[Rfam]
RNA sequence: GUCCUUAUAGCUUAUCGGUUAAAGCAUCUCACUGUUAAUGAGAAUAGAUGGGUUCAAUUCCUAUUAAGGACG
Numbered sequence: 001g002u003c004c005u006u007a008u009a010g011c012u013u014a015u016c017g018g019u020u021a022a023a024g025c026a027u028c029u030c031a032c033u034g035u036u037a038a039u040g041a042g043a044a045u046a047g048a049u050g051g052g053u054u055c056a057a058u059u060c061c062u063a064u065u066a067a068g069g070a071c072g
Stems, first nucleotide, its partner, number of pairs: 001071007010025004027043005048064005
Shown here is a 72-nucleotide sequence from Saccharomyces cerevisiae, a member of the family "tRNA". Pairs were carried over by alignment from the consensus structure, which is taken from published work. Rfam's curators put it in the seed alignment.